[Rfam]
RNA sequence: CUGUUAAGUAAUGAUGUGGUAGACGGAGUGUCACAUCAUCGUGUCCAAUCACUAAUACGUCAGUGUUACAUCAUUUAAGGUGAUGACGUGACAAUGAGGUGUAUGUGACAAGGCGUGAUAAUGUGGUACUCCGUCAGACACGUUAUCAUUUAAUAGAA
Numbered sequence: 001c002u003g004u005u006a007a008g009u010a011a012u013g014a015u016g017u018g019g020u021a022g023a024c025g026g027a028g029u030g031u032c033a034c035a036u037c038a039u040c041g042u043g044u045c046c047a048a049u050c051a052c053u054a055a056u057a058c059g060u061c062a063g064u065g066u067u068a069c070a071u072c073a074u075u076u077a078a079g080g081u082g083a084u085g086a087c088g089u090g091a092c093a094a095u096g097a098g099g100u101g102u103a104u105g106u107g108a109c110a111a112g113g114c115g116u117g118a119u120a121a122u123g124u125g126g127u128a129c130u131c132c133g134u135c136a137g138a139c140a141c142g143u144u145a146u147c148a149u150u151u152a153a154u155a156g157a158a
Stems, first nucleotide, its partner, number of pairs: 001156009011146008020137001022135015038119008049108004055102004071086004

Rfam assigns this 158-nucleotide RNA sequence from Glycine max to the family "MIR4371 microRNA precursor family".
The family's consensus secondary structure was predicted with RNAalifold.
The match comes from Rfam's covariance-model search (110 bits).
Lineage of the source: Eukaryota > Streptophyta > Magnoliopsida > Pentapetalae > Glycine subgen. Soja.
Rfam 15.1 lists 321 matches to the family in 4 species.